[Rfam]
The record is a 129-nucleotide RNA from Enhydra lutris, which matches "Small nucleolar RNA SNORA25" in Rfam. It scores 105 bits against the family's covariance model.
Nucleotides: 129
Base pairs, nucleotide, nucleotide: 004057006055007054014047015046016045017044018043019042020041021040023039026037027036072122074120075119076118079115080114081113082112089105090104092103093102094101095100
Number, partner (000 for none) and nucleotide at each position: 001000g002000a003000a004057u005000c006055a007054u008000u009000u010000c011000a012000a013000a014047g015046a016045g017044g018043g019042c020041u021040u022000u023039u024000g025000g026037g027036g028000c029000u030000g031000u032000g033000a034000a035000g036027c037026c038000a039023g040021g041020a042019g043018c044017u045016c046015u047014u048000a049000g050000c051000u052000c053000u054007a055006u056000a057004a058000c059000c060000a061000a062000a063000g064000a065000u066000u067000g068000a069000a070000g071000u072122u073000c074120u075119c076118c077000a078000u079115a080114g081113g082112a083000u084000g085000c086000c087000a088000c089105a090104g091000u092103c093102a094101c095100u096000c097000a098000a099000a100095a101094g102093u103092g104090c105089u106000a107000g108000g109000c110000u111000u112082u113081u114080c115079u116000g117000g118076g119075g120074a121000a122072a123000u124000a125000u126000a127000a128000g129000a

It is annotated as an H/ACA-box small nucleolar RNA. NCBI's taxonomy places the organism under Eukaryota, Chordata, Craniata, Dipnotetrapodomorpha, Enhydra lutris.